[Rfam]
Shown here is a 94-nucleotide sequence from Desulfofundulus thermobenzoicus, a member of the family "Selenocysteine transfer RNA".
RNA sequence: GGGAGUGGAUGGGGCCUGGUGGCCCUCCUGGUCUUCAAAACCAGUCGUGGGGCGGUAGUCCCGUCCCGGGUGAGUUCGAUUCUCACACACUCCC
Numbered sequence: 001g002g003g004a005g006u007g008g009a010u011g012g013g014g015c016c017u018g019g020u021g022g023c024c025c026u027c028c029u030g031g032u033c034u035u036c037a038a039a040a041c042c043a044g045u046c047g048u049g050g051g052g053c054g055g056u057a058g059u060c061c062c063g064u065c066c067c068g069g070g071u072g073a074g075u076u077c078g079a080u081u082c083u084c085a086c087a088c089a090c091u092c093c094c
Stems, first nucleotide, its partner, number of pairs: 001094007008086001011026006028044005048068005071085004